[Rfam]
A member of the RNA family "Guanidine-II riboswitch aptamer (mini-ykkC)" from Nitratireductor pacificus, 50 nucleotides long.
RNA sequence: AGACGAGGACGACCUCUCUCAUCCAGAACACACCGACCGGGACGGCCCGG
Number, nucleotide and partner (000 for none) at each position: 001a019002g018003a000004c000005g016006a015007g014008g013009a000010c000011g000012a000013c008014c007015u006016c005017u000018c002019u001020c000021a000022u000023c000024c000025a000026g000027a000028a000029c000030a000031c000032a000033c000034c000035g000036a000037c050038c049039g048040g047041g046042a000043c000044g000045g000046c041047c040048c039049g038050g037
Description:
Its family is annotated with regulation of gene expression in the Gene Ontology. Pairs were carried over by alignment from the consensus structure, which is taken from published work. A search with the family's covariance model found it, with a score of 35 bits. Lineage of the source: Bacteria > Pseudomonadati > Hyphomicrobiales > Phyllobacteriaceae > Nitratireductor pacificus. A reference for the family is Weinberg et al. (2007), "Identification of 22 candidate structured RNAs in bacteria using the CMfinder comparative genomics pipeline", Nucleic Acids Res.